[Rfam]
Source information:
Rfam assigns this 106-nucleotide sequence from Staphylococcus lugdunensis to the family "Staphylococcus sRNA71 small RNA". Lineage of the source: Bacteria > Bacillati > Bacilli > Caryophanales > Staphylococcus. sRNA71 is a Bacterial small RNA discovered by RNA-seq analysis of the multiresistant Staphylococcus aureus strain ST239 grown in the presence of antibiotics and found throughout the Staphylococcus genus. It is thought to be a trans-encoded small RNA expressed in diverse conditions and media. The 5' position is uncertain, this record adds 12 bases to the initial sRNA71 sequence to include additional conserved nucleotides. For this family Rfam cites "Analysis of the small RNA transcriptional response in multidrug-resistant Staphylococcus aureus after antimicrobial exposure" (Howden et al., Antimicrob Agents Chemother, 2013).
RNA sequence: AAUCAUGCUAAAAUAUAACUGUAGUUAGAGAUAACUACAUAGUCUUUUAUAUUCAUGAACAUAAUACUCCUGGAUGACGCCUUAACCCGACGUCAUCCUCUUUUUU
Numbered sequence: 001a002a003u004c005a006u007g008c009u010a011a012a013a014u015a016u017a018a019c020u021g022u023a024g025u026u027a028g029a030g031a032u033a034a035c036u037a038c039a040u041a042g043u044c045u046u047u048u049a050u051a052u053u054c055a056u057g058a059a060c061a062u063a064a065u066a067c068u069c070c071u072g073g074a075u076g077a078c079g080c081c082u083u084a085a086c087c088c089g090a091c092g093u094c095a096u097c098c099u100c101u102u103u104u105u106u
Base pairs, nucleotide, nucleotide: 003058004057005056006055007054011052013050014049015048017046018045020039021038022037023036024035025034026033027032072098073097074096075095076094077093078092079091